[Rfam]
RNA: Singlet oxygen resistance RNA X
RNA sequence: AACAGUCAGAUGACGGCAUGCCGUUGUCUACCUCCCUGUUGGACUUUGGCCGAGCUUAGUGCUCGGCCUUUUUU
Numbered sequence: 001a002a003c004a005g006u007c008a009g010a011u012g013a014c015g016g017c018a019u020g021c022c023g024u025u026g027u028c029u030a031c032c033u034c035c036c037u038g039u040u041g042g043a044c045u046u047u048g049g050c051c052g053a054g055c056u057u058a059g060u061g062c063u064c065g066g067c068c069u070u071u072u073u074u
Base pairs, nucleotide, nucleotide: 008029009028010027011026012025013024014023048068049067050066051065052064053063054062055061